[Rfam]
RNA sequence: CGUGCUAAUUUAGCCACAGUGGCAAUAACAACUCUACAAGUUUAGCCUGCUGCUAGAAAUUAGCUAAAAAAAAAGUUCAUAAUUUUAGGAACCAUUGAAAAAUACUCUUUAAGUUUUUCAUCGGGCCGUUUUUAUGAAAACAUGU
Numbered sequence: 001c002g003u004g005c006u007a008a009u010u011u012a013g014c015c016a017c018a019g020u021g022g023c024a025a026u027a028a029c030a031a032c033u034c035u036a037c038a039a040g041u042u043u044a045g046c047c048u049g050c051u052g053c054u055a056g057a058a059a060u061u062a063g064c065u066a067a068a069a070a071a072a073a074a075g076u077u078c079a080u081a082a083u084u085u086u087a088g089g090a091a092c093c094a095u096u097g098a099a100a101a102a103u104a105c106u107c108u109u110u111a112a113g114u115u116u117u118u119c120a121u122c123g124g125g126c127c128g129u130u131u132u133u134a135u136g137a138a139a140a141c142a143u144g145u
Stems, first nucleotide, its partner, number of pairs: 004064008017052004021047003076138005088127002092123001096120007105113002
RNA: small nucleolar RNA snoR27